RNA sequence: GGCUGUUUUUGGCAAUGGUAGAACUCACACUGGUGAGAUAGUGGGAUCCGGUGGUUCUAGACUUGCCAACUAUAGCC
Numbered sequence: 001g002g003c004u005g006u007u008u009u010u011g012g013c014a015a016u017g018g019u020a021g022a023a024c025u026c027a028c029a030c031u032g033g034u035g036a037g038a039u040a041g042u043g044g045g046a047u048c049c050g051g052u053g054g055u056u057c058u059a060g061a062c063u064u065g066c067c068a069a070c071u072a073u074a075g076c077c
Stems, first nucleotide, its partner, number of pairs: 002076005009069007019059006028053006
This 77-nucleotide sequence from Chiloscyllium punctatum belongs to the Rfam family "mir-182 microRNA precursor family". For this family Rfam cites "Identification and expression profiling of microRNAs during bovine oocyte maturation using heterologous approach" (Tesfaye et al., Mol Reprod Dev, 2009). Gene Ontology terms of the family: RISC complex and miRNA-mediated post-transcriptional gene silencing. The match comes from Rfam's covariance-model search (102 bits). The source organism's lineage runs through Eukaryota, Metazoa, Selachii, Galeomorphii and Chiloscyllium. Clan: mir-182 clan.